[Rfam]
RNA sequence: CGCUGCCGAUGAUGUUGACUCUCAACUUAACCUACAUUGUUUGAUGUUUACUGAGAAGACAGUAAUUCUGAGGCACUG
Number, nucleotide and partner (000 for none) at each position: 001c078002g077003c000004u075005g074006c073007c072008g000009a000010u000011g000012a000013u000014g000015u000016u000017g000018a000019c000020u000021c000022u000023c000024a000025a000026c000027u000028u000029a000030a000031c000032c000033u000034a000035c000036a000037u000038u000039g000040u000041u000042u000043g000044a000045u000046g000047u000048u000049u000050a000051c000052u000053g000054a000055g000056a000057a000058g000059a000060c000061a000062g000063u000064a000065a000066u000067u000068c000069u000070g000071a000072g007073g006074c005075a004076c000077u002078g001

Background: Rfam assigns this 78-nucleotide RNA from Acanthaster planci to the family "Small nucleolar RNA SNORD34". A search with the family's covariance model found it, with a score of 40 bits. It is annotated as a C/D-box small nucleolar RNA. The source organism's lineage runs through Eukaryota, Echinodermata, Valvatida, Acanthasteridae and Acanthaster. For this family Rfam cites "Purified box C/D snoRNPs are able to reproduce site-specific 2'-O-methylation of target RNA in vitro" (Galardi et al., Mol Cell Biol, 2002). Pairs were carried over by alignment from the consensus structure, which was predicted with PFOLD. Rfam describes the family as follows. snoRNA U34 is found in intron 5 of the ribosomal protein L13a gene in humans.